This 92-nucleotide RNA from Methylopila turkensis belongs to the Rfam family "Selenocysteine transfer RNA". It scores 73 bits against the family's covariance model. The organism belongs to Methylopila, within Bacteria.

[Rfam]
RNA sequence: GGAGGAGAAGCGUCCCCGGUGGGGCGGCCGGCCUUCAAAGCCGGAGGGGGCCGUUCGCCGGCCUUCGGUGGGUUCGACUCCCACUCUCUUCC
Numbered sequence: 001g002g003a004g005g006a007g008a009a010g011c012g013u014c015c016c017c018g019g020u021g022g023g024g025c026g027g028c029c030g031g032c033c034u035u036c037a038a039a040g041c042c043g044g045a046g047g048g049g050g051c052c053g054u055u056c057g058c059c060g061g062c063c064u065u066c067g068g069u070g071g072g073u074u075c076g077a078c079u080c081c082c083a084c085u086c087u088c089u090u091c092c
Stems, first nucleotide, its partner, number of pairs: 001092008011026006028044005047065005069083004